[Rfam]
RNA sequence: CAGUCCGCCACGUGGGACACCCUCACCGGGGUUGCGAAGGCGCGGUUACUCUGAGCGCGUGCACCCUUGACACAGCAAGGGUGCAAAGCCGACAGCCGUCGCAUCCCAGGGAGUUCUCUCAUG
Numbered sequence: 001c002a003g004u005c006c007g008c009c010a011c012g013u014g015g016g017a018c019a020c021c022c023u024c025a026c027c028g029g030g031g032u033u034g035c036g037a038a039g040g041c042g043c044g045g046u047u048a049c050u051c052u053g054a055g056c057g058c059g060u061g062c063a064c065c066c067u068u069g070a071c072a073c074a075g076c077a078a079g080g081g082u083g084c085a086a087a088g089c090c091g092a093c094a095g096c097c098g099u100c101g102c103a104u105c106c107c108a109g110g111g112a113g114u115u116c117u118c119u120c121a122u123g
Base pairs, nucleotide, nucleotide: 060085061084062083063082065080066079067078068077088102089101091100092099093098
Shown here is a 123-nucleotide RNA sequence from Streptomyces sp. BR123, a member of the family "Streptomyces-metH RNA".
Pairs were carried over by alignment from the consensus structure, which is taken from published work.
Rfam classes the family as a small RNA.